[Rfam]
RNA: Eukaryotic small subunit ribosomal RNA, nucleotides 1755 to 1921
Organism: Paragonimus westermani
RNA sequence: GCCCGUCGCUACCACCGAUUGAAUGGUUUAGCAUGGUCCUUGGAUUGGUGCCAUUGUAGUUGCUUCGGCAGCUCGACCGGCGCUGAGAAGACGAUCAAACUUGAUGGUUUGGAGGGAGUGAAAUUCGUAACCAGGUUUCCGUAGGUGAACCUGCGGAUGGAGCAUUA
Numbered sequence: 001g002c003c004c005g006u007c008g009c010u011a012c013c014a015c016c017g018a019u020u021g022a023a024u025g026g027u028u029u030a031g032c033a034u035g036g037u038c039c040u041u042g043g044a045u046u047g048g049u050g051c052c053a054u055u056g057u058a059g060u061u062g063c064u065u066c067g068g069c070a071g072c073u074c075g076a077c078c079g080g081c082g083c084u085g086a087g088a089a090g091a092c093g094a095u096c097a098a099a100c101u102u103g104a105u106g107g108u109u110u111g112g113a114g115g116g117a118g119u120g121a122a123a124u125u126c127g128u129a130a131c132c133a134g135g136u137u138u139c140c141g142u143a144g145g146u147g148a149a150c151c152u153g154c155g156g157a158u159g160g161a162g163c164a165u166u167a
Stems, first nucleotide, its partner, number of pairs: 001131001004127002010120003015115002019111001021110004026105003030101002035096004040091002045086008055076001058073005136159001138157008